[Rfam]
RNA sequence: UUAUUUAUAAGGCAAAGUAGGGGAAACCCUAUGACGCAAAGCUAUAGGGUCUUUAAAAUGGCAGCCAGCUGCAGUA
Numbered sequence: 001u002u003a004u005u006u007a008u009a010a011g012g013c014a015a016a017g018u019a020g021g022g023g024a025a026a027c028c029c030u031a032u033g034a035c036g037c038a039a040a041g042c043u044a045u046a047g048g049g050u051c052u053u054u055a056a057a058a059u060g061g062c063a064g065c066c067a068g069c070u071g072c073a074g075u076a
Stems, first nucleotide, its partner, number of pairs: 012037002017032006040070004047066002049062003

A member of the RNA family "c-di-GMP-I riboswitch aptamer" from Cetobacterium somerae, 76 nucleotides long. The match comes from Rfam's covariance-model search (62 bits). Its family is annotated with cyclic-di-GMP binding in the Gene Ontology.